[Rfam]
RNA sequence: AGUUCGGGAGCCUUCCGGUGGGACGGAGGGCAUGAAUAGAACCGAUAACCCCUCUAUCGCCAAGCGGCGUAUGCUCGUGGCCCGACGAGCCUGCG
Number, nucleotide and partner (000 for none) at each position: 001a000002g042003u041004u040005c039006g000007g000008g000009a000010g031011c030012c029013u028014u027015c026016c025017g024018g000019u000020g000021g000022g000023a000024c017025g016026g015027a014028g013029g012030g011031c010032a000033u000034g000035a000036a000037u000038a000039g005040a004041a003042c002043c000044g000045a000046u000047a000048a000049c000050c000051c000052c000053u000054c000055u000056a000057u000058c000059g000060c000061c000062a000063a000064g000065c000066g000067g000068c095069g094070u093071a092072u000073g090074c089075u088076c087077g086078u000079g000080g000081c000082c000083c000084g000085a000086c077087g076088a075089g074090c073091c000092u071093g070094c069095g068
Rhodo-rpoB RNA: a 95-nucleotide RNA from Pseudorhodobacter ferrugineus. Pairs were carried over by alignment from the consensus structure, which is taken from published work. The organism belongs to Pseudorhodobacter ferrugineus, within Bacteria. The sequence is in the family's curated seed alignment.